[Rfam]
RNA sequence: CUGUAAAGAUAUGGUGAGUCGUAGGACCAUCCCCAUAAUCGCAGAAUGGGACAUAUCGAGGAA
Dot-bracket structure: .......(((((((((.(((....)))))).(((((.........))))).))))))......
RNA: S4-Fusobacteriales ribosomal protein leader